[Rfam]
RNA sequence: AUUUGGUGUUGGGGGCACAUUCUGCACAACUUCUUGAACCGUUCCCAAUACUCAUAGAGUGACUCCCCUGGGUGCUGCUUGAUCCCGCAAAUUUCUUUUCUCAGACU
Number, nucleotide and partner (000 for none) at each position: 001a107002u000003u105004u104005g102006g101007u000008g000009u000010u000011g000012g000013g000014g000015g000016c000017a000018c000019a000020u000021u000022c000023u000024g000025c000026a000027c000028a000029a000030c000031u000032u000033c000034u000035u000036g000037a000038a000039c000040c000041g000042u000043u000044c000045c000046c000047a000048a000049u000050a000051c000052u000053c000054a000055u000056a000057g000058a073059g000060u071061g000062a000063c000064u000065c000066c000067c000068c000069u000070g000071g060072g000073u058074g000075c000076u000077g000078c000079u000080u000081g000082a000083u000084c000085c000086c000087g000088c000089a000090a000091a000092u000093u000094u000095c000096u000097u000098u000099u000100c000101u006102c005103a000104g004105a003106c000107u001

About this RNA: The record is a 107-nucleotide sequence from Coffea arabica, which matches "Plant small nucleolar RNA R71" in Rfam. The base pairs follow the family's consensus structure, which was predicted with PFOLD. Rfam links the family to the GO terms RNA processing and nucleolus.